Rfam assigns this 125-nucleotide RNA from Cicer arietinum to the family "Small nucleolar RNA snoR74".
A search with the family's covariance model found it, with a score of 77 bits.
On this family, see Marker et al., Curr Biol 2002: "Experimental RNomics: identification of 140 candidates for small non-messenger RNAs in the plant Arabidopsis thaliana".
The family's RNA type in Rfam is H/ACA-box small nucleolar RNA.
Gene Ontology terms of the family: RNA processing and nucleolus.
Pairs were carried over by alignment from the consensus structure, which was predicted with WAR.
[Rfam]
RNA sequence: AAAAAAGCAGUUGUCACCUUUGUGAACAGUCCUCUUGUAACCUUCAGGGACGCAAAAACCCUUGUUAUUGGGUGAACCUCUGUUCCCUUUUUGUGCUUGAAGGUUCAGUAAAUGAUGGAACAUUU
Numbered sequence: 001a002a003a004a005a006a007g008c009a010g011u012u013g014u015c016a017c018c019u020u021u022g023u024g025a026a027c028a029g030u031c032c033u034c035u036u037g038u039a040a041c042c043u044u045c046a047g048g049g050a051c052g053c054a055a056a057a058a059c060c061c062u063u064g065u066u067a068u069u070g071g072g073u074g075a076a077c078c079u080c081u082g083u084u085c086c087c088u089u090u091u092u093g094u095g096c097u098u099g100a101a102g103g104u105u106c107a108g109u110a111a112a113u114g115a116u117g118g119a120a121c122a123u124u125u
Stems, first nucleotide, its partner, number of pairs: 005044003012028002059118002062115005073107007